[Rfam]
RNA: Archaeal RNase P
Organism: Haloarcula salinisoli
RNA sequence: GGCAGCGGGAGGCCGGCCCCCGUGGCGCGAGCCAUGAGGAAAGUCCCCCCACCCGUCGGACAGGUGACCGGGCACAAGCCCGGGGCGGGAGACCGUCGGCUAUGGAACAGCAACGACACGUCGUCCGGGGACCGAUGAGGUGUGCGAAUCCCGAGCGGCAAGCCAGGGAGAGUUAACCCACCGAGGGCUAACGUGGUGUGCUGACGCCCACCGCGAUAUAACGUGGUCCGCCUUCGGCGGUCCACGCUCCCCGGACGGACCGAUGGAACGGCGAAUCCUCACCGGUGCAAGACCGCGUCGACAGGUAGUCCGACACCGCGUGUAAGCGCUGGACGCGGUCGCUCAGCCGAAUGCCGGCCCGAACAGAAGGGGGCUUACUCCCCGCAGCC
Numbered sequence: 001g002g003c004a005g006c007g008g009g010a011g012g013c014c015g016g017c018c019c020c021c022g023u024g025g026c027g028c029g030a031g032c033c034a035u036g037a038g039g040a041a042a043g044u045c046c047c048c049c050c051a052c053c054c055g056u057c058g059g060a061c062a063g064g065u066g067a068c069c070g071g072g073c074a075c076a077a078g079c080c081c082g083g084g085g086c087g088g089g090a091g092a093c094c095g096u097c098g099g100c101u102a103u104g105g106a107a108c109a110g111c112a113a114c115g116a117c118a119c120g121u122c123g124u125c126c127g128g129g130g131a132c133c134g135a136u137g138a139g140g141u142g143u144g145c146g147a148a149u150c151c152c153g154a155g156c157g158g159c160a161a162g163c164c165a166g167g168g169a170g171a172g173u174u175a176a177c178c179c180a181c182c183g184a185g186g187g188c189u190a191a192c193g194u195g196g197u198g199u200g201c202u203g204a205c206g207c208c209c210a211c212c213g214c215g216a217u218a219u220a221a222c223g224u225g226g227u228c229c230g231c232c233u234u235c236g237g238c239g240g241u242c243c244a245c246g247c248u249c250c251c252c253g254g255a256c257g258g259a260c261c262g263a264u265g266g267a268a269c270g271g272c273g274a275a276u277c278c279u280c281a282c283c284g285g286u287g288c289a290a291g292a293c294c295g296c297g298u299c300g301a302c303a304g305g306u307a308g309u310c311c312g313a314c315a316c317c318g319c320g321u322g323u324a325a326g327c328g329c330u331g332g333a334c335g336c337g338g339u340c341g342c343u344c345a346g347c348c349g350a351a352u353g354c355c356g357g358c359c360c361g362a363a364c365a366g367a368a369g370g371g372g373g374c375u376u377a378c379u380c381c382c383c384g385c386a387g388c389c
Stems, first nucleotide, its partner, number of pairs: 001389003005385005010379002012358006021036005041376003045373005050287004063283005068083005084097005098278002103274001105272001119262002122257010291340009